Record summary
Shown here is a 61-nucleotide sequence from Diplocloster agilis, a member of the family "GP20-b RNA". It scores 36 bits against the family's covariance model. Rfam classes the family as a cis-regulatory element.

RNA sequence: UGCCUGGGCGCGGGCGUAAUCGGCGCGGGUACACGGGGACGCGACCCCGAUAAUAAGCGAA
Numbered sequence: 001u002g003c004c005u006g007g008g009c010g011c012g013g014g015c016g017u018a019a020u021c022g023g024c025g026c027g028g029g030u031a032c033a034c035g036g037g038g039a040c041g042c043g044a045c046c047c048c049g050a051u052a053a054u055a056a057g058c059g060a061a
Stems, first nucleotide, its partner, number of pairs: 001016004008026004034049004